[Rfam]
RNA: Small nucleolar RNA SNORA25
Organism: Myotis brandtii
RNA sequence: AGGUCAUUUCAAAGAGGGCUUGCAGGACUGUGACACCAGGAGCUCUUAACUCUGUGGCCAAAGACCAAAGUUAUCCACAGGAUGCCAUAGUCACUCAAUAGCGCUGUGUGUUCCUGAAGAGACAUAGUC
Numbered sequence: 001a002g003g004u005c006a007u008u009u010c011a012a013a014g015a016g017g018g019c020u021u022g023c024a025g026g027a028c029u030g031u032g033a034c035a036c037c038a039g040g041a042g043c044u045c046u047u048a049a050c051u052c053u054g055u056g057g058c059c060a061a062a063g064a065c066c067a068a069a070g071u072u073a074u075c076c077a078c079a080g081g082a083u084g085c086c087a088u089a090g091u092c093a094c095u096c097a098a099u100a101g102c103g104c105u106g107u108g109u110g111u112u113c114c115u116g117a118a119g120a121g122a123c124a125u126a127g128u129c
Base pairs, nucleotide, nucleotide: 002059003058004057005056006055007054014047015046016045017044018043019042020041021040023039026037072122074120075119079115080114081113082112087107088106089105090104092103094101095100